Rfam assigns this 268-nucleotide RNA sequence from Aspergillus nidulans to the family "Fungal signal recognition particle RNA". Lineage of the source: Eukaryota > Opisthokonta > Eurotiomycetes > Eurotiales > Aspergillus nidulans. Rfam classes the family as a non-coding RNA gene.

[Rfam]
RNA sequence: UAUCUGUUAUGGAUAGUCGAGUGGGAGAUCAGCCGCUAGUCGGUGACCUUGCUAAGGUCUUGGCCAGCGCCGACUGGUGCCCGGUACGAAUCCUGGGGUUGUCGAUGUACUCGUGCGAGUAAUCCACGAUCGCUACACGGCAUUAAGCAAUGGAAGUGACCCUUGAGGGAAGCAAUUCUGCAGAGACACUUCCACCCUGGGGUGGCGUCAUCGGAUUACACCGUCGCGUUACAGGGAACCUGGCUGUAUGGUUGGGCAACCACUUUUU
Numbered sequence: 001u002a003u004c005u006g007u008u009a010u011g012g013a014u015a016g017u018c019g020a021g022u023g024g025g026a027g028a029u030c031a032g033c034c035g036c037u038a039g040u041c042g043g044u045g046a047c048c049u050u051g052c053u054a055a056g057g058u059c060u061u062g063g064c065c066a067g068c069g070c071c072g073a074c075u076g077g078u079g080c081c082c083g084g085u086a087c088g089a090a091u092c093c094u095g096g097g098g099u100u101g102u103c104g105a106u107g108u109a110c111u112c113g114u115g116c117g118a119g120u121a122a123u124c125c126a127c128g129a130u131c132g133c134u135a136c137a138c139g140g141c142a143u144u145a146a147g148c149a150a151u152g153g154a155a156g157u158g159a160c161c162c163u164u165g166a167g168g169g170a171a172g173c174a175a176u177u178c179u180g181c182a183g184a185g186a187c188a189c190u191u192c193c194a195c196c197c198u199g200g201g202g203u204g205g206c207g208u209c210a211u212c213g214g215a216u217u218a219c220a221c222c223g224u225c226g227c228g229u230u231a232c233a234g235g236g237a238a239c240c241u242g243g244c245u246g247u248a249u250g251g252u253u254g255g256g257c258a259a260c261c262a263c264u265u266u267u268u
Stems, first nucleotide, its partner, number of pairs: 001015004019265006029255003033251003037246005042240003047235002056065003068228003072225003076222004081214005086208003090203009100142001102140003106137004111129005117124002143147001151194007162185003169178003

Rfam 15.1 lists 748 matches to the family in 741 species.
The sequence is in the family's curated seed alignment.
Its Rfam clan is "SRP clan".